[Rfam]
RNA sequence: GUUUUGCUGUGACGACAUCUUUUAGGACGGUAUCUGAGCGAGGCUUGUAACCUUGCAUGAUUAUACCUAAUCUGAGACAAAUGUCUGAGCUAAUU
Dot-bracket structure: (.((.((..............................((((((.......))))))................................)).)).)
Shown here is a 95-nucleotide sequence from Eragrostis curvula, a member of the family "Small nucleolar RNA Z118/Z121/Z120". Gene Ontology terms of the family: RNA processing and nucleolus. The literature on the family includes a 2003 paper in Nucleic Acids Res by Chen et al., "The high diversity of snoRNAs in plants: identification and comparative study of 120 snoRNA genes from Oryza sativa". Pairs were carried over by alignment from the consensus structure, which was predicted with PFOLD.